[Rfam]
RNA sequence: AGUUUUCACGAUGAGGAUAUAAAAGCUCCCUCUUCUGAAGUUGAGUUGAGGAACUUCGCUGGCAGAAUCGAACCAUAAAAAUUUAGCCAUCACUGAGUGA
Numbered sequence: 001a002g003u004u005u006u007c008a009c010g011a012u013g014a015g016g017a018u019a020u021a022a023a024a025g026c027u028c029c030c031u032c033u034u035c036u037g038a039a040g041u042u043g044a045g046u047u048g049a050g051g052a053a054c055u056u057c058g059c060u061g062g063c064a065g066a067a068u069c070g071a072a073c074c075a076u077a078a079a080a081a082u083u084u085a086g087c088c089a090u091c092a093c094u095g096a097g098u099g100a
Base pairs, nucleotide, nucleotide: 006100007099008098009097
RNA: Small nucleolar RNA R30/Z108